Shown here is a 75-nucleotide sequence from Streptomyces caatingaensis, a member of the family "ASpks TB sRNA". The family's consensus secondary structure is taken from published work. It scores 71 bits against the family's covariance model. Rfam classes the family as an antisense RNA.
RNA sequence: CUUCACCGACCCCAGCCACAACGGCCGCCCCUCCGGCCGGUCUCGUCCAUAGGUGGCGAGGAGUGCCUCAGCCUC
Numbered sequence: 001c002u003u004c005a006c007c008g009a010c011c012c013c014a015g016c017c018a019c020a021a022c023g024g025c026c027g028c029c030c031c032u033c034c035g036g037c038c039g040g041u042c043u044c045g046u047c048c049a050u051a052g053g054u055g056g057c058g059a060g061g062a063g064u065g066c067c068u069c070a071g072c073c074u075c
Stems, first nucleotide, its partner, number of pairs: 015025003031071002038065002043060001047056003